[Rfam]
RNA sequence: CCAACAGAGAUCAGUUGGCAGUAUGCCCACCUCCUCUAACUAACAAUUUUUUAUAUAUAAUUUUCACAUUAUGUAUCUUUUUUUAAAAAAAAUGAUAGGAGGAGGUGGACAGAAUGCCAAUAAACUCUGUUAG
Numbered sequence: 001c002c003a004a005c006a007g008a009g010a011u012c013a014g015u016u017g018g019c020a021g022u023a024u025g026c027c028c029a030c031c032u033c034c035u036c037u038a039a040c041u042a043a044c045a046a047u048u049u050u051u052u053a054u055a056u057a058u059a060a061u062u063u064u065c066a067c068a069u070u071a072u073g074u075a076u077c078u079u080u081u082u083u084u085a086a087a088a089a090a091a092a093u094g095a096u097a098g099g100a101g102g103a104g105g106u107g108g109a110c111a112g113a114a115u116g117c118c119a120a121u122a123a124a125c126u127c128u129g130u131u132a133g
Stems, first nucleotide, its partner, number of pairs: 011124001015120006024111002027108011
MIR394 microRNA precursor family: a 133-nucleotide RNA from Salvia splendens. It scores 62 bits against the family's covariance model. Gene Ontology terms of the family: miRNA-mediated post-transcriptional gene silencing and RISC complex. For this family Rfam cites "Computational identification of plant microRNAs and their targets, including a stress-induced miRNA" (Jones-Rhoades and Bartel, Mol Cell, 2004). Lineage of the source: Eukaryota > Tracheophyta > Gunneridae > asterids > core Calosphace.